[Rfam]
RNA sequence: UCUGGCCUGAUAAACAGACCUACUUUAUGUACGACAUCUUGAGUUAAUGCGUUAUGUGUAAAAGUGCUAUCCUAAGUAGCCUUUGUAGACCGUUUCCUUCUUAGUGCCUCCAUAAGUAAUAGCUGAUACUGGCCAACACAUGCCCGAGGUGGCGAGUUUUUUUUGAUAUAUAGGAAAGUCACAUGAAAAUGACAGGUCAAGUGAAGUGGUUCAACGAGUCCAAAGGUUUUGGUUUCAUUACUCCAACCGAUGGUAGCAAAGACGUAUUCGUUCACUUCUCUGCCAUUCAAGGUAACGGUUUCAAAACUCUGGCUGAAGGCCAGAACGUAGAAUUCACCAUUGAAGAUGGUGCCAAAGGCCCAGCAGCAGCAAACGUAACUGCUAUCUAAUUUAGCCUUCAUGCCUUAUUAAGCUCGCCAUGCUAAAAUGCCUUGGCGGGCUUU
Numbered sequence: 001u002c003u004g005g006c007c008u009g010a011u012a013a014a015c016a017g018a019c020c021u022a023c024u025u026u027a028u029g030u031a032c033g034a035c036a037u038c039u040u041g042a043g044u045u046a047a048u049g050c051g052u053u054a055u056g057u058g059u060a061a062a063a064g065u066g067c068u069a070u071c072c073u074a075a076g077u078a079g080c081c082u083u084u085g086u087a088g089a090c091c092g093u094u095u096c097c098u099u100c101u102u103a104g105u106g107c108c109u110c111c112a113u114a115a116g117u118a119a120u121a122g123c124u125g126a127u128a129c130u131g132g133c134c135a136a137c138a139c140a141u142g143c144c145c146g147a148g149g150u151g152g153c154g155a156g157u158u159u160u161u162u163u164u165g166a167u168a169u170a171u172a173g174g175a176a177a178g179u180c181a182c183a184u185g186a187a188a189a190u191g192a193c194a195g196g197u198c199a200a201g202u203g204a205a206g207u208g209g210u211u212c213a214a215c216g217a218g219u220c221c222a223a224a225g226g227u228u229u230u231g232g233u234u235u236c237a238u239u240a241c242u243c244c245a246a247c248c249g250a251u252g253g254u255a256g257c258a259a260a261g262a263c264g265u266a267u268u269c270g271u272u273c274a275c276u277u278c279u280c281u282g283c284c285a286u287u288c289a290a291g292g293u294a295a296c297g298g299u300u301u302c303a304a305a306a307c308u309c310u311g312g313c314u315g316a317a318g319g320c321c322a323g324a325a326c327g328u329a330g331a332a333u334u335c336a337c338c339a340u341u342g343a344a345g346a347u348g349g350u351g352c353c354a355a356a357g358g359c360c361c362a363g364c365a366g367c368a369g370c371a372a373a374c375g376u377a378a379c380u381g382c383u384a385u386c387u388a389a390u391u392u393a394g395c396c397u398u399c400a401u402g403c404c405u406u407a408u409u410a411a412g413c414u415c416g417c418c419a420u421g422c423u424a425a426a427a428u429g430c431c432u433u434g435g436c437g438g439g440c441u442u443u
Stems, first nucleotide, its partner, number of pairs: 004020002007017003028245002031242001034239001043235001046234003050226001052224002064221001066219002072216001076212001079210003096174003102168001104129003142153003182196001184194002248342006261269002272330001274328002277325001279324004283319002287312003291308001347362003351359003363385001365383005388409003393405002396402001412440008421431001423429001
Description
The family of this 443-nucleotide sequence from Xenorhabdus cabanillasii is "cspA thermoregulator". By type it is an RNA thermoregulator. On this family, see Giuliodori et al., Mol Cell 2010: "The cspA mRNA is a thermosensor that modulates translation of the cold-shock protein CspA". The source organism's lineage runs through Bacteria, Pseudomonadati, Pseudomonadota, Gammaproteobacteria and Xenorhabdus.